[Rfam]
RNA sequence: ACCUCCUGCUCGUGAUCGUCUUCUCAACCUUCACGUGCGGGCGGAUGAAAACGGCCGGCCCCCACGAGGACGUGACUCGUGGGGGCCGGCU
Numbered sequence: 001a002c003c004u005c006c007u008g009c010u011c012g013u014g015a016u017c018g019u020c021u022u023c024u025c026a027a028c029c030u031u032c033a034c035g036u037g038c039g040g041g042c043g044g045a046u047g048a049a050a051a052c053g054g055c056c057g058g059c060c061c062c063c064a065c066g067a068g069g070a071c072g073u074g075a076c077u078c079g080u081g082g083g084g085g086c087c088g089g090c091u
Stems, first nucleotide, its partner, number of pairs: 002043001005041005011035005018028002053091016
RNA: sodF sRNA
Organism: Streptomyces agglomeratus